[Rfam]
RNA sequence: CCGAAUGAAGGGAGGUGGUCCGAAGCAUGUAUGCACACCGGACGUCGGAGGUGGCUGCGGGCUGAUGGCCCGUCGCCCACUGAGUGCGGUGCCGGACCAGCGCGUGUGAGUCGCGCGCAACCGGCCAAUUCAACGCAGUCACCCGACCCGCGAGUCGCCGGUACGUCCGGCCGGCCCUCCUCCGGGAGGACCCGACUCGCGGGUCGUCUGCU
Numbered sequence: 001c002c003g004a005a006u007g008a009a010g011g012g013a014g015g016u017g018g019u020c021c022g023a024a025g026c027a028u029g030u031a032u033g034c035a036c037a038c039c040g041g042a043c044g045u046c047g048g049a050g051g052u053g054g055c056u057g058c059g060g061g062c063u064g065a066u067g068g069c070c071c072g073u074c075g076c077c078c079a080c081u082g083a084g085u086g087c088g089g090u091g092c093c094g095g096a097c098c099a100g101c102g103c104g105u106g107u108g109a110g111u112c113g114c115g116c117g118c119a120a121c122c123g124g125c126c127a128a129u130u131c132a133a134c135g136c137a138g139u140c141a142c143c144c145g146a147c148c149c150g151c152g153a154g155u156c157g158c159c160g161g162u163a164c165g166u167c168c169g170g171c172c173g174g175c176c177c178u179c180c181u182c183c184g185g186g187a188g189g190a191c192c193c194g195a196c197u198c199g200c201g202g203g204u205c206g207u208c209u210g211c212u
Base pairs, nucleotide, nucleotide: 015058016057017056018055019054060126061125062124063123064122066120068118069117071115074113144206145205146204147203148202149201150200151199152198153197154196155195156194157175158174159173160172161171162170
Rfam assigns this 212-nucleotide sequence from Streptomyces sp. 3214.6 to the family "Actinobacteria sRNA Ms_IGR-5". The match comes from Rfam's covariance-model search (79 bits). The pairing is the family consensus, mapped onto this sequence. The family's RNA type in Rfam is small RNA.